[Rfam]
RNA sequence: GUGCUACGCCGUAUGGGGGAUGGUUCGGCUAGAGUGCUGAUGAAGGUCGUGUCAAGCUGCGAUAAGCGUCGGGAAGGUGCAAGAAGCCUAUGAUCCGACGAUCACCUAAUGGGACUUCCUAUUCUUCGGAAUUGUCAGUAGUGACAGGGAACGCGGGGGAUUGAAGCAUCUUAGUACCCGCAGGAAAAGAAAUCAACCGAGAUACCGUUAGUAAAGGCGAUCGAACGCGGUACAGAUCAAACCGAAUCCCUAUGGGAAACCAUGGGGAGAUGUGGAGUUAUGGAUCCUUUUACUCCUUGGGCUGGGAUAUCUGAAGUCGUCUGGAAAGACGCGCCAUAGAGGGUGAUAGCCCCUUAAGAGAAGGCCAGUACGGAGAUUGAAGGUUAUCCGGAGUAGCGUGAGUUGGAUAUCUCGCGUGAACUCGGGGGACAUUUGCCUCCAAAUCUAAAUACAACUCUAGUCCGAUAGCGUAAUAGUAGCGUGAGCGAAAUCUGAAAAGUACCCUUAACGGGAGAUGAAAAGACCUGAAACCAUACGGUUAUAGAUUAGUACAGCAUGAAAGGGAAGAAGCCGCAAGGUGGACCAGUGUUGUACCAU
Dot-bracket structure: .......(((((((((.....((...((((((((((.......(((((((........))).....((((((...(((.......)))......))))))...))))...(((....))).............((((....))))......((((((.....((....))......))))).).........((....))...(((((......(.....).....)))))..((((....(((.......((((....)))).........)))..........((((...((((.............(((...(.((((......)))))..(...).(((.......)))...)))............))))....))))............(((((((........)))))))......(((((.......)))))..)))).....)).)))))).))...............((....)).....)................................).....))))))))).........(((((((((....((......(((....)))...)).)))))))))...
Record summary: Rfam assigns this 597-nucleotide part of an RNA from methanogenic archaeon ISO4-H5 to the family "Archaeal large subunit ribosomal RNA". The organism belongs to Thermoplasmata, within Archaea. A search with the family's covariance model found it, with a score of 2706 bits. The family's consensus secondary structure is taken from published work.